[Rfam]
RNA sequence: GUGCUUGUAGCUCAGCUGGAUAGAGUGACUGGCUACGAACCAGUAGGUCGGGGGUUCGAAUCCCUCCAGGCACG
Numbered sequence: 001g002u003g004c005u006u007g008u009a010g011c012u013c014a015g016c017u018g019g020a021u022a023g024a025g026u027g028a029c030u031g032g033c034u035a036c037g038a039a040c041c042a043g044u045a046g047g048u049c050g051g052g053g054g055u056u057c058g059a060a061u062c063c064c065u066c067c068a069g070g071c072a073c074g
Stems, first nucleotide, its partner, number of pairs: 001073007010026004028044005050066005
The record is a 74-nucleotide RNA sequence from Ruminococcus flavefaciens, which matches "tRNA" in Rfam. The organism belongs to Ruminococcus flavefaciens, within Bacteria. It scores 65 bits against the family's covariance model. It is annotated as a transfer RNA.